[Rfam]
RNA sequence: GUCCCAGGUUGCGGCGGACCAGAUCCAAAAGCCUGCCAGGACAAUCGCGACAGCUGGCCACAUGCGGGUUACGAGGCCCAUGAGGCCGGCUGU
Numbered sequence: 001g002u003c004c005c006a007g008g009u010u011g012c013g014g015c016g017g018a019c020c021a022g023a024u025c026c027a028a029a030a031g032c033c034u035g036c037c038a039g040g041a042c043a044a045u046c047g048c049g050a051c052a053g054c055u056g057g058c059c060a061c062a063u064g065c066g067g068g069u070u071a072c073g074a075g076g077c078c079c080a081u082g083a084g085g086c087c088g089g090c091u092g093u
Base pairs, nucleotide, nucleotide: 001019002018003017004016025047027045032040033039050093051092052091053090054089055088056087057086058085059084063082064081066079067078068077069076
Rfam assigns this 93-nucleotide RNA from Ensifer fredii to the family "Rhizobiales sRNA Atu_Ti1". It is one of the family's seed sequences. The family's RNA type in Rfam is small RNA. The literature on the family includes a 2012 paper in RNA Biol by Wilms et al., "Deep sequencing uncovers numerous small RNAs on all four replicons of the plant pathogen Agrobacterium tumefaciens".